[Rfam]
RNA sequence: GCUUGGGGACGACCCCAGCUGCGGACAAAUUCGGGGACGACCCCA
Numbered sequence: 001g002c003u004u005g006g007g008g009a010c011g012a013c014c015c016c017a018g019c020u021g022c023g024g025a026c027a028a029a030u031u032c033g034g035g036g037a038c039g040a041c042c043c044c045a
Stems, first nucleotide, its partner, number of pairs: 001020001003018006033044004
Guanidine-II riboswitch aptamer (mini-ykkC): a 45-nucleotide RNA sequence from Devosia epidermidihirudinis. NCBI's taxonomy places the organism under Bacteria, Pseudomonadota, Hyphomicrobiales, Devosiaceae, Devosia. The family has 72 seed sequences and 1,589 matches in Rfam 15.1. A reference for the family is Sherlock et al. (2017), "Biochemical Validation of a Second Guanidine Riboswitch Class in Bacteria", Biochemistry. Rfam describes the family as follows. Simpler in structure and has fewer highly conserved nucleotide positions than the ykkC-yxkD leader. Despite this each of its two stem-loop structures directly bind free guanidine. Therefore, mini-ykkC RNA motif represents a distinct class of guanidine-sensing RNAs. Pairs were carried over by alignment from the consensus structure, which is taken from published work.